[Rfam]
RNA sequence: UGUUUUUGAUCGCUGAGUUUUCGGUGCUAACCGAAAAACGGGGGAACCAAAUUGCGAUUUCACAAAACGGUGUGAGAGCCGGAAUGUGAAUCGUUGGGGUGAAUCUGCAUACUGACUAACCAUGGUACAGUCAGACAAUGCAGUAGGGCGACUCUCACCGCCCGAAUCCGACAGCUAACCUCGUAAGCGUGGAUAGGAGAGAAG
Numbered sequence: 001u002g003u004u005u006u007u008g009a010u011c012g013c014u015g016a017g018u019u020u021u022c023g024g025u026g027c028u029a030a031c032c033g034a035a036a037a038a039c040g041g042g043g044g045a046a047c048c049a050a051a052u053u054g055c056g057a058u059u060u061c062a063c064a065a066a067a068c069g070g071u072g073u074g075a076g077a078g079c080c081g082g083a084a085u086g087u088g089a090a091u092c093g094u095u096g097g098g099g100u101g102a103a104u105c106u107g108c109a110u111a112c113u114g115a116c117u118a119a120c121c122a123u124g125g126u127a128c129a130g131u132c133a134g135a136c137a138a139u140g141c142a143g144u145a146g147g148g149c150g151a152c153u154c155u156c157a158c159c160g161c162c163c164g165a166a167u168c169c170g171a172c173a174g175c176u177a178a179c180c181u182c183g184u185a186a187g188c189g190u191g192g193a194u195a196g197g198a199g200a201g202a203a204g
Stems, first nucleotide, its partner, number of pairs: 011189004018037008038184006048096002097169003105143006146163004
Dot-bracket structure: ..........((((...((((((((....))))))))((((((....((.............................................))(((.....((((((...........................))))))..((((..........))))...))).........)))))).))))...............
This 204-nucleotide RNA sequence from Paenibacillus nuruki belongs to the Rfam family "c-di-AMP riboswitch aptamer (ydaO/yuaA leader)". Taxonomically the source falls in Paenibacillus (Bacteria, Bacilli, Caryophanales, Paenibacillaceae). The match comes from Rfam's covariance-model search (92 bits).